[Rfam]
RNA sequence: UUUUAGGUUGGUGCAAAAGAAAUUGCGGCUUUUGCCAUUAAAGGCAAUGGCAAAAGCCUCGAUUUCUUUUGCACCAACCUAAUA
Numbered sequence: 001u002u003u004u005a006g007g008u009u010g011g012u013g014c015a016a017a018a019g020a021a022a023u024u025g026c027g028g029c030u031u032u033u034g035c036c037a038u039u040a041a042a043g044g045c046a047a048u049g050g051c052a053a054a055a056g057c058c059u060c061g062a063u064u065u066c067u068u069u070u071g072c073a074c075c076a077a078c079c080u081a082a083u084a
Stems, first nucleotide, its partner, number of pairs: 001084001003082023027058013
The record is an 84-nucleotide sequence from Saimiri boliviensis, which matches "mir-548 microRNA precursor family" in Rfam. On this family, see Jima et al., Blood 2010: "Deep sequencing of the small RNA transcriptome of normal and malignant human B cells identifies hundreds of novel microRNAs". Lineage of the source: Eukaryota > Bilateria > Mammalia > Euarchontoglires > Saimiri boliviensis. Gene Ontology terms of the family: RISC complex and miRNA-mediated post-transcriptional gene silencing.